Shown here is a 77-nucleotide RNA from Sphingobium sp. YR768, a member of the family "Makes More Granules Regulator RNA (mmgR)". The pairing is the family consensus, mapped onto this sequence. SuhB later renamed mmgR (makes more granules regulator) was a putative non-coding RNA found multiple times in the Agrobacterium tumefaciens genome and related alpha-proteobacteria. The organism belongs to Sphingobium, within Bacteria. It is annotated as a small RNA.
RNA sequence: AGAGCAGGCCUUUCAGGCAUCCUCUCCUAAAAACUUUCAAGGGCCGGUCGUCAGAUCGGCCUUUUUUUUAUGCGCGA
Dot-bracket structure: .......((((...))))......................(((((((((....)))))))))...............